The record is a 158-nucleotide RNA from Pristimantibacillus lignocellulolyticus, which matches "c-di-AMP riboswitch aptamer (ydaO/yuaA leader)" in Rfam. NCBI's taxonomy places the organism under Bacteria, Bacillati, Bacilli, Caryophanales, Pristimantibacillus (SeqCode).
RNA sequence: AAGCCUAUAUUGCCAAAUUCUUAAGCAUCAUAACUUAAGAUACGGGGGAUCCAUUUGGGGUGAAUUGAGCUGGAUUAUGAAUAAUCAUAAUUGGUAGUCUCAUAGGGAACCUUCAACCGAACCCGUCAGCUAACCUCGUCGGCACAUUGGAAGGAGUC
Numbered sequence: 001a002a003g004c005c006u007a008u009a010u011u012g013c014c015a016a017a018u019u020c021u022u023a024a025g026c027a028u029c030a031u032a033a034c035u036u037a038a039g040a041u042a043c044g045g046g047g048g049a050u051c052c053a054u055u056u057g058g059g060g061u062g063a064a065u066u067g068a069g070c071u072g073g074a075u076u077a078u079g080a081a082u083a084a085u086c087a088u089a090a091u092u093g094g095u096a097g098u099c100u101c102a103u104a105g106g107g108a109a110c111c112u113u114c115a116a117c118c119g120a121a122c123c124c125g126u127c128a129g130c131u132a133a134c135c136u137c138g139u140c141g142g143c144a145c146a147u148u149g150g151a152a153g154g155a156g157u158c
Stems, first nucleotide, its partner, number of pairs: 011144004019040007042139006052057001058124003066102004105118002